[Rfam]
RNA: Glycine riboswitch aptamer
RNA sequence: CGACCCCGCGCGGGAGAGCCCCCGCACCGCCGGCCCGCCGGCGGAGGUGGGGCGCCGAAGGGGCAACCUCCCCGGAACCUCUCAGGCGCCAGGACCGCGCGGGUGAG
Numbered sequence: 001c002g003a004c005c006c007c008g009c010g011c012g013g014g015a016g017a018g019c020c021c022c023c024g025c026a027c028c029g030c031c032g033g034c035c036c037g038c039c040g041g042c043g044g045a046g047g048u049g050g051g052g053c054g055c056c057g058a059a060g061g062g063g064c065a066a067c068c069u070c071c072c073c074g075g076a077a078c079c080u081c082u083c084a085g086g087c088g089c090c091a092g093g094a095c096c097g098c099g100c101g102g103g104u105g106a107g
Base pairs, nucleotide, nucleotide: 006102007101008100009099010098011097012096013095020052021051022050023049024048025047054087055086056085057083058082061081062080063079067075068074